[Rfam]
Shown here is a 127-nucleotide sequence from Nicotiana tabacum, a member of the family "U11 spliceosomal RNA". A search with the family's covariance model found it, with a score of 79 bits. It is annotated as a spliceosomal small nuclear RNA. The family has 72 seed sequences and 2,595 matches in Rfam 15.1. A reference for the family is Marz et al. (2008), "Evolution of spliceosomal snRNA genes in metazoan animals", J Mol Evol. Gene Ontology terms of the family: pre-mRNA 5'-splice site binding, mRNA 5'-splice site recognition and U11 snRNP. The source organism's lineage runs through Eukaryota, eudicotyledons, Gunneridae, Pentapetalae and Nicotiana.
RNA sequence: AAAAAGGGUCGGUUGGCUAAAUAUGCCACACUCGCCCGAGUGGUGAGUGCCGUAUGGAUAUCAAGACAUAUGGCCGACAUAAUUUGUGGAAUUUUUAUAGGGUUGGCUCGCUGGCCGACCCUCCAUU
Numbered sequence: 001a002a003a004a005a006g007g008g009u010c011g012g013u014u015g016g017c018u019a020a021a022u023a024u025g026c027c028a029c030a031c032u033c034g035c036c037c038g039a040g041u042g043g044u045g046a047g048u049g050c051c052g053u054a055u056g057g058a059u060a061u062c063a064a065g066a067c068a069u070a071u072g073g074c075c076g077a078c079a080u081a082a083u084u085u086g087u088g089g090a091a092u093u094u095u096u097a098u099a100g101g102g103u104u105g106g107c108u109c110g111c112u113g114g115c116c117g118a119c120c121c122u123c124c125a126u127u
Base pairs, nucleotide, nucleotide: 008078009077010076011075012074014028015027016026017025029049030048031047032046033045034044035043036042050073051072052071053070054069055068056067096125099122100121101120102119103118104117106116108114109113